Annotation
Shown here is an 85-nucleotide sequence from Megalops atlanticus, a member of the family "mir-301 microRNA precursor family". It scores 70 bits against the family's covariance model. Gene Ontology terms of the family: RISC complex and miRNA-mediated post-transcriptional gene silencing. The organism belongs to Megalops, within Eukaryota.
[Rfam]
RNA sequence: GGGGGUCAGUUGCUUUGACGAUGUUGCACUACUGUUCCAGCCACUCAAGCAGUGCAAUAGUAUUGUCAUAGCAUUAGGCCUUCGU
Numbered sequence: 001g002g003g004g005g006u007c008a009g010u011u012g013c014u015u016u017g018a019c020g021a022u023g024u025u026g027c028a029c030u031a032c033u034g035u036u037c038c039a040g041c042c043a044c045u046c047a048a049g050c051a052g053u054g055c056a057a058u059a060g061u062a063u064u065g066u067c068a069u070a071g072c073a074u075u076a077g078g079c080c081u082u083c084g085u
Stems, first nucleotide, its partner, number of pairs: 002082003007077001009075001011073004016068004023058008034042001